[Rfam]
The record is a 298-nucleotide RNA from Elysia chlorotica, which matches "Metazoan signal recognition particle RNA" in Rfam. Rfam links the family to the GO terms SRP-dependent cotranslational protein targeting to membrane, signal sequence recognition and signal recognition particle, endoplasmic reticulum targeting. About the family: The signal recognition particle (SRP) is a universally conserved ribonucleoprotein. It is involved in the co-translational targeting of proteins to membranes. The eukaryotic SRP consists of a 300-nucleotide 7S RNA and six proteins: SRPs 72, 68, 54, 19, 14, and 9. Archaeal SRP consists of a 7S RNA and homologues of the eukaryotic SRP19 and SRP54 proteins. The base pairs follow the family's consensus structure, which is taken from published work.

RNA sequence: GCCGGGAGUCGUGGCGGGCUCCUGUAAUCCGGCUACCUGGAGGCUUGAACUGGUGGACGGCUUGAGGCCGGGGGUUCUGCUCCCGCGCGGGCCGCGUCGAUCGGGUGUCCGCGCUAAGCUCGCCAUCAAUAUGGUCGUCCUGGGGGAGCCUGGGGCGGCCAGGUUGUCUAAGGAGGGGCGGACAGGCCCAGGGGGGAAACCCAGCAGGCAAAAGUCCCCGUGGUGAGCAGUAGUGGGACCGCACCCGUGAGCGGACGUUCGGUGGUAGCCCGGCCGAGACAGUCGAACGCAGUUCUUU
Numbered sequence: 001g002c003c004g005g006g007a008g009u010c011g012u013g014g015c016g017g018g019c020u021c022c023u024g025u026a027a028u029c030c031g032g033c034u035a036c037c038u039g040g041a042g043g044c045u046u047g048a049a050c051u052g053g054u055g056g057a058c059g060g061c062u063u064g065a066g067g068c069c070g071g072g073g074g075u076u077c078u079g080c081u082c083c084c085g086c087g088c089g090g091g092c093c094g095c096g097u098c099g100a101u102c103g104g105g106u107g108u109c110c111g112c113g114c115u116a117a118g119c120u121c122g123c124c125a126u127c128a129a130u131a132u133g134g135u136c137g138u139c140c141u142g143g144g145g146g147a148g149c150c151u152g153g154g155g156c157g158g159c160c161a162g163g164u165u166g167u168c169u170a171a172g173g174a175g176g177g178g179c180g181g182a183c184a185g186g187c188c189c190a191g192g193g194g195g196g197a198a199a200c201c202c203a204g205c206a207g208g209c210a211a212a213a214g215u216c217c218c219c220g221u222g223g224u225g226a227g228c229a230g231u232a233g234u235g236g237g238a239c240c241g242c243a244c245c246c247g248u249g250a251g252c253g254g255a256c257g258u259u260c261g262g263u264g265g266u267a268g269c270c271c272g273g274c275c276g277a278g279a280c281a282g283u284c285g286a287a288c289g290c291a292g293u294u295c296u297u298u
Stems, first nucleotide, its partner, number of pairs: 001044003004023007028041003047295006058285005066275007077268005083262003087258003092254004097249001102247007109237002112235005118228009127166004132161013167173002175218005186209003193202003